A member of the RNA family "TPP riboswitch aptamer (THI element)" from Arthrobacter sp. ISL-48, 119 nucleotides long.
RNA sequence: GGCUGGUACUGCGGGAGCCCGCGGCAGCUGUCACCAAGCGCCGGGCUGAGAGGGCGUCAGAGCCGACCGCUUGACCUGAUCCGGCUAGUACCGGCGUAGGGAAGGAGACACAUCAUGCC
Number, nucleotide and partner (000 for none) at each position: 001g000002g000003c000004u000005g000006g000007u106008a000009c104010u103011g070012c069013g068014g067015g000016a000017g046018c045019c044020c043021g042022c000023g000024g000025c000026a000027g000028c000029u000030g000031u000032c000033a000034c000035c000036a000037a000038g000039c000040g000041c000042c021043g020044g019045g018046c017047u000048g000049a000050g000051a000052g000053g064054g063055c062056g000057u000058c000059a000060g000061a000062g055063c054064c053065g000066a000067c014068c013069g012070c011071u000072u000073g000074a000075c100076c099077u098078g097079a000080u000081c094082c093083g092084g091085c000086u000087a000088g000089u000090a000091c084092c083093g082094g081095c000096g000097u078098a077099g076100g075101g000102a000103a010104g009105g000106a007107g000108a000109c000110a000111c000112a000113u000114c000115a000116u000117g000118c000119c000
A search with the family's covariance model found it, with a score of 62 bits.